[Rfam]
RNA sequence: CCGCACGCGUCGGGAGAGCGUGCUGGCCGCAGAAAAUCGCAGGCCGCGCCGCCGAAGGGGCACACCCGCAAACUCUCAGGCAAAAGGACCGGCCGCGUCGAA
Dot-bracket structure: .....((((((((......((((......................)))).(((((..(((............))))).))).......)))).)))).....
RNA: Glycine riboswitch aptamer